[Rfam]
Overview: Rfam assigns this 81-nucleotide sequence from Chiloscyllium punctatum to the family "Small nucleolar RNA SNORD87". By type it is a C/D-box small nucleolar RNA. The base pairs follow the family's consensus structure. Gene Ontology terms of the family: RNA processing and nucleolus. The source organism's lineage runs through Eukaryota, Metazoa, Eumetazoa, Hemiscylliidae and Chiloscyllium.
RNA sequence: GCUGGAACGAUGAUGAAUUCAAUUGCCGUUUACCCAUCUGACAAUAUAAUGAGGAUAUCUUAUUAAUUCUGAGUUUCCAGC
Number, nucleotide and partner (000 for none) at each position: 001g081002c080003u079004g078005g077006a076007a075008c000009g000010a000011u000012g000013a000014u000015g000016a000017a000018u000019u000020c000021a000022a000023u000024u000025g000026c000027c000028g000029u000030u000031u000032a000033c000034c000035c000036a000037u000038c000039u000040g000041a000042c000043a000044a000045u000046a000047u000048a000049a000050u000051g000052a000053g000054g000055a000056u000057a000058u000059c000060u000061u000062a000063u000064u000065a000066a000067u000068u000069c000070u000071g000072a000073g000074u000075u007076u006077c005078c004079a003080g002081c001